[Rfam]
Glycine riboswitch aptamer: a 98-nucleotide RNA from Mycobacterium shinjukuense. Taxonomically the source falls in Mycobacterium (Bacteria, Actinomycetota, Actinomycetes, Mycobacteriales).

RNA sequence: GCACCUCACGCGGGAGAGUUCUGUGGCCGCCAGCUACGGACGCCGAAGGAGCAACACCUCUCCGUCAACCUCUCAGGCACCCGGACCGCGCGAGACCA
Numbered sequence: 001g002c003a004c005c006u007c008a009c010g011c012g013g014g015a016g017a018g019u020u021c022u023g024u025g026g027c028c029g030c031c032a033g034c035u036a037c038g039g040a041c042g043c044c045g046a047a048g049g050a051g052c053a054a055c056a057c058c059u060c061u062c063c064g065u066c067a068a069c070c071u072c073u074c075a076g077g078c079a080c081c082c083g084g085a086c087c088g089c090g091c092g093a094g095a096c097c098a
Base pairs, nucleotide, nucleotide: 006093007092009090010089011088012087013086020040021039022038023037024036025035042078043077044076045074046073049072050071051070056065057064
Dot-bracket structure: .....((.(((((......((((((.........)))))).(((((..(((....((......))....))))).))).......))))).)).....

Rfam describes the family as follows. This family represents the bacterial glycine riboswitch.